Rfam assigns this 219-nucleotide sequence from Gossypium mustelinum to the family "Plant small nucleolar RNA U3".
Small nucleolar RNAs (snoRNAs) are involved in the processing and modification of rRNA in the nucleolus. There are two main classes of snoRNAs: the box C/D class, and the box H/ACA class. U3 snoRNA is a member of the box C/D class.
Rfam links the family to the GO terms RNA processing and nucleolus.

[Rfam]
RNA sequence: ACGACCUUACUUGAACAGGAUCUGUUCUAUAGGCUCGUACCUCUGUGUCCUUAAGCUCAAAGGAGACAGGAUUCCAAGUCUGGUUGAUGAACCAGGACUGUGUGACCUGAGCGUGAUUAUUGGUCUGGUGAUUCCCUUGCUGGUUUCACUUGGACCGCAGAGGAUCGUUCUCAGCUAGCCUUGGGCGGCUGGGAAGGUCACGCAGUUGUCUGACAGACU
Numbered sequence: 001a002c003g004a005c006c007u008u009a010c011u012u013g014a015a016c017a018g019g020a021u022c023u024g025u026u027c028u029a030u031a032g033g034c035u036c037g038u039a040c041c042u043c044u045g046u047g048u049c050c051u052u053a054a055g056c057u058c059a060a061a062g063g064a065g066a067c068a069g070g071a072u073u074c075c076a077a078g079u080c081u082g083g084u085u086g087a088u089g090a091a092c093c094a095g096g097a098c099u100g101u102g103u104g105a106c107c108u109g110a111g112c113g114u115g116a117u118u119a120u121u122g123g124u125c126u127g128g129u130g131a132u133u134c135c136c137u138u139g140c141u142g143g144u145u146u147c148a149c150u151u152g153g154a155c156c157g158c159a160g161a162g163g164a165u166c167g168u169u170c171u172c173a174g175c176u177a178g179c180c181u182u183g184g185g186c187g188g189c190u191g192g193g194a195a196g197g198u199c200a201c202g203c204a205g206u207u208g209u210c211u212g213a214c215a216g217a218c219u
Stems, first nucleotide, its partner, number of pairs: 001038002003035001005033003013027006043069004048064005078218005097206012110169004121157007128149004134143002171192006179184001